The record is a 137-nucleotide RNA from Callithrix jacchus, which matches "U12 minor spliceosomal RNA" in Rfam. A search with the family's covariance model found it, with a score of 57 bits. By type it is a spliceosomal small nuclear RNA. The family is grouped with related families in Rfam's "U2 clan". On this family, see Otake et al., Mol Cell 2002: "The divergent U12-type spliceosome is required for pre-mRNA splicing and is essential for development in Drosophila". Gene Ontology terms of the family: pre-mRNA branch point binding, U12 snRNP and mRNA branch site recognition.
RNA sequence: AUGCUUUAAACUUAUGAGUAAGGAAAAUAAUGAUUCGGGGUGAUGCCCGAAUGCUUAAAAAAAAUAAAAGCUUUUUUGACUGUGUGAGAUAGUGUCUCAUUGUGGUUUUGACUGGAUUACAAAAAAUGUUGUACAUA
Numbered sequence: 001a002u003g004c005u006u007u008a009a010a011c012u013u014a015u016g017a018g019u020a021a022g023g024a025a026a027a028u029a030a031u032g033a034u035u036c037g038g039g040g041u042g043a044u045g046c047c048c049g050a051a052u053g054c055u056u057a058a059a060a061a062a063a064a065u066a067a068a069a070g071c072u073u074u075u076u077u078g079a080c081u082g083u084g085u086g087a088g089a090u091a092g093u094g095u096c097u098c099a100u101u102g103u104g105g106u107u108u109u110g111a112c113u114g115g116a117u118u119a120c121a122a123a124a125a126a127u128g129u130u131g132u133a134c135a136u137a
Stems, first nucleotide, its partner, number of pairs: 004023005033052007054070003081137005089132007097125001100122005106116003